This 63-nucleotide sequence from Muntiacus reevesi belongs to the Rfam family "Selenocysteine insertion sequence 1".

RNA sequence: AUUUUACCCAUGAAGGUGUUCCUUCUAAACCUACGUGAAGGAACGCCUGAUGUCCAGGAAAAU
Number, nucleotide and partner (000 for none) at each position: 001a063002u062003u061004u060005u059006a000007c000008c000009c000010a000011u000012g000013a000014a000015g047016g046017u045018g044019u043020u042021c041022c040023u039024u038025c000026u000027a000028a000029a000030c037031c000032u000033a000034c000035g000036u000037g030038a024039a023040g022041g021042a020043a019044c018045g017046c016047c015048u000049g000050a000051u000052g000053u000054c000055c000056a000057g000058g000059a005060a004061a003062a002063u001

Lineage of the source: Eukaryota > Sarcopterygii > Eutheria > Artiodactyla > Muntiacus. Rfam links the family to the GO term selenocysteine incorporation. A search with the family's covariance model found it, with a score of 36 bits. On this family, see Lambert et al., Biochimie 2002: "A survey of metazoan selenocysteine insertion sequences". The family's consensus secondary structure is taken from published work.